[Rfam]
The family of this 46-nucleotide RNA from Maylandia zebra is "Histone 3' UTR stem-loop". The source organism's lineage runs through Eukaryota, Metazoa, Vertebrata, Actinopteri and Maylandia zebra complex. A search with the family's covariance model found it, with a score of 41 bits. Pairs were carried over by alignment from the consensus structure, which is taken from published work. The mRNAs of metazoan histone genes lack a poly-A tail. 3' end processing occurs at a site between a highly conserved stem-loop (modelled by this family) and a purine rich region around 20 nts downstream (the histone downstream element, or HDE).

RNA sequence: UCAACGGCUCUUUUAAGAGCCACACACUUUUUUUUAAGAGCUUCGU
Numbered sequence: 001u002c003a004a005c006g007g008c009u010c011u012u013u014u015a016a017g018a019g020c021c022a023c024a025c026a027c028u029u030u031u032u033u034u035u036a037a038g039a040g041c042u043u044c045g046u
Stems, first nucleotide, its partner, number of pairs: 006021006